Plastid-ccsA-ndhD-1 3UTR RNA: a 56-nucleotide sequence from Jacobaea vulgaris. The sequence is in the family's curated seed alignment. For this family Rfam cites "Control of plastid gene expression: 3' inverted repeats act as mRNA processing and stabilizing elements, but do not terminate transcription" (Stern and Gruissem, Cell, 1987). It is annotated as a cis-regulatory element. The source organism's lineage runs through Eukaryota, Streptophyta, Asteroideae, Senecioneae and Jacobaea. The family has 488 seed sequences and 1,322 matches in Rfam 15.1.
[Rfam]
RNA sequence: CAACCGGCGAGAACCACAUGAAUCACUACACUACUUGAUUCACAUGGUUCUCGCAA
Number, nucleotide and partner (000 for none) at each position: 001c000002a000003a000004c000005c000006g000007g054008c053009g052010a051011g050012a049013a048014c047015c046016a045017c000018a000019u042020g041021a040022a039023u038024c037025a036026c000027u000028a000029c000030a000031c000032u000033a000034c000035u000036u025037g024038a023039u022040u021041c020042a019043c000044a000045u016046g015047g014048u013049u012050c011051u010052c009053g008054c007055a000056a000